RNA sequence: CUUGAUCGAAUACCUGAUUCCGUGAAGAUCAUCCCCGGGAAGGUGCGCCCAUCUUCACGCCCCCACACCGAGGCU
Numbered sequence: 001c002u003u004g005a006u007c008g009a010a011u012a013c014c015u016g017a018u019u020c021c022g023u024g025a026a027g028a029u030c031a032u033c034c035c036c037g038g039g040a041a042g043g044u045g046c047g048c049c050c051a052u053c054u055u056c057a058c059g060c061c062c063c064c065a066c067a068c069c070g071a072g073g074c075u
Stems, first nucleotide, its partner, number of pairs: 003031005008020003039056007
Actinobacteria sRNA Ms_AS-8: a 75-nucleotide RNA sequence from Mycolicibacterium smegmatis. Lineage of the source: Bacteria > Mycobacteriales > Mycobacteriaceae > Mycobacterium > Mycobacterium (subgen. Mycolicibacterium).